[Rfam]
RNA sequence: CCUGUGACUCACGUGGACUGAUGGGAUCCUGAGGUAAGGUUGGCCCCGUCGGCUCCCUCCGAGGACAGGACGAGAUGUGCCCAGACUAGCGUCCCGACUCGAAGGAGGCUGCUGGAUCUGGGUGAAUCGCAAG
Numbered sequence: 001c002c003u004g005u006g007a008c009u010c011a012c013g014u015g016g017a018c019u020g021a022u023g024g025g026a027u028c029c030u031g032a033g034g035u036a037a038g039g040u041u042g043g044c045c046c047c048g049u050c051g052g053c054u055c056c057c058u059c060c061g062a063g064g065a066c067a068g069g070a071c072g073a074g075a076u077g078u079g080c081c082c083a084g085a086c087u088a089g090c091g092u093c094c095c096g097a098c099u100c101g102a103a104g105g106a107g108g109c110u111g112c113u114g115g116a117u118c119u120g121g122g123u124g125a126a127u128c129g130c131a132a133g
Stems, first nucleotide, its partner, number of pairs: 001069005071129003079123007